c-di-AMP riboswitch aptamer (ydaO/yuaA leader): a 158-nucleotide RNA sequence from Streptomyces shenzhenensis. About the family: This family represents a conserved RNA structure found upstream of the ydaO and yuaA genes in Bacillus subtilis and related genes in other bacteria. Taxonomically the source falls in Streptomyces (Bacteria, Actinomycetota, Actinomycetes, Streptomycetaceae).
RNA sequence: ACACACCACUCACCCGUGUACGGCAGGAGCGGGGGACCCACCAGGCACGACCGCCUGUCCCGGUCUCCGGGACGGCUAGGGGUGAAGCCGCGCCACGCGCGGCCGGGCAGCUCCAGCCCGAACCCGACAGCUCACCUCGCAGGCGCCGGAGAGGAAUU
Numbered sequence: 001a002c003a004c005a006c007c008a009c010u011c012a013c014c015c016g017u018g019u020a021c022g023g024c025a026g027g028a029g030c031g032g033g034g035g036a037c038c039c040a041c042c043a044g045g046c047a048c049g050a051c052c053g054c055c056u057g058u059c060c061c062g063g064u065c066u067c068c069g070g071g072a073c074g075g076c077u078a079g080g081g082g083u084g085a086a087g088c089c090g091c092g093c094c095a096c097g098c099g100c101g102g103c104c105g106g107g108c109a110g111c112u113c114c115a116g117c118c119c120g121a122a123c124c125c126g127a128c129a130g131c132u133c134a135c136c137u138c139g140c141a142g143g144c145g146c147c148g149g150a151g152a153g154g155a156a157u158u
Stems, first nucleotide, its partner, number of pairs: 004145001006143002014027002029140006039079001080125003088102004105119004
The base pairs follow the family's consensus structure. For this family Rfam cites "New RNA motifs suggest an expanded scope for riboswitches in bacterial genetic control" (Barrick et al., Proc Natl Acad Sci U S A, 2004).